This 90-nucleotide RNA belongs to the Rfam family "c-di-GMP-II-GAG riboswitch aptamer". The family's consensus secondary structure is taken from published work.
[Rfam]
RNA sequence: GGAAGAGAUAGAGGCUAAGAACCCCGUCCGCAAAACGUUCGGGCACCCAUGGGACGGAGGGAGCCAGUGGUGCGACCGGCUAUCUGGGAU
Numbered sequence: 001g002g003a004a005g006a007g008a009u010a011g012a013g014g015c016u017a018a019g020a021a022c023c024c025c026g027u028c029c030g031c032a033a034a035a036c037g038u039u040c041g042g043g044c045a046c047c048c049a050u051g052g053g054a055c056g057g058a059g060g061g062a063g064c065c066a067g068u069g070g071u072g073c074g075a076c077c078g079g080c081u082a083u084c085u086g087g088g089a090u
Stems, first nucleotide, its partner, number of pairs: 001090001006085006013065003022059001024057006041077002043073005